Description:
A member of the RNA family "Small nucleolar RNA snoR74" from Abrus precatorius, 130 nucleotides long. Gene Ontology terms of the family: nucleolus and RNA processing. The match comes from Rfam's covariance-model search (102 bits). By type it is an H/ACA-box small nucleolar RNA. The literature on the family includes a 2002 paper in Curr Biol by Marker et al., "Experimental RNomics: identification of 140 candidates for small non-messenger RNAs in the plant Arabidopsis thaliana".
RNA sequence: AAAAAAGCAGGGGUCUGUUUGACCUUGUGGACUGGCCUCUCGUAACCUUCAGGGAUAUAAUUUCCAUUGUUAUUGGGUGAACCUCUGUUCUUUGUUUCUGACGGAAGGUUCAGUAAAUGAUGGAACAAGC
Numbered sequence: 001a002a003a004a005a006a007g008c009a010g011g012g013g014u015c016u017g018u019u020u021g022a023c024c025u026u027g028u029g030g031a032c033u034g035g036c037c038u039c040u041c042g043u044a045a046c047c048u049u050c051a052g053g054g055a056u057a058u059a060a061u062u063u064c065c066a067u068u069g070u071u072a073u074u075g076g077g078u079g080a081a082c083c084u085c086u087g088u089u090c091u092u093u094g095u096u097u098c099u100g101a102c103g104g105a106a107g108g109u110u111c112a113g114u115a116a117a118u119g120a121u122g123g124a125a126c127a128a129g130c
Base pairs, nucleotide, nucleotide: 005049006048007047011038012037014035015034017032063124064123065122066121067120068119069118070117071116078112079111080110081109082108083107084106
Dot-bracket structure: ....(((...((.((.(..............).)).))........))).............(((((((((......(((((((.....................)))))))...)))))))))......